[Rfam]
RNA: Trypanosomatid snoRNA TB9Cs3H2
Organism: Leishmania braziliensis
RNA sequence: AGUGCCGCCAGGUAAAGCGGCGAUGGUGUGCCUCAUCCGCGUCGCUUGUUCAAGCGGCACGAGA
Numbered sequence: 001a002g003u004g005c006c007g008c009c010a011g012g013u014a015a016a017g018c019g020g021c022g023a024u025g026g027u028g029u030g031c032c033u034c035a036u037c038c039g040c041g042u043c044g045c046u047u048g049u050u051c052a053a054g055c056g057g058c059a060c061g062a063g064a
Base pairs, nucleotide, nucleotide: 002060003059004058005057006056015047016046017045018044019043020042021041022040027035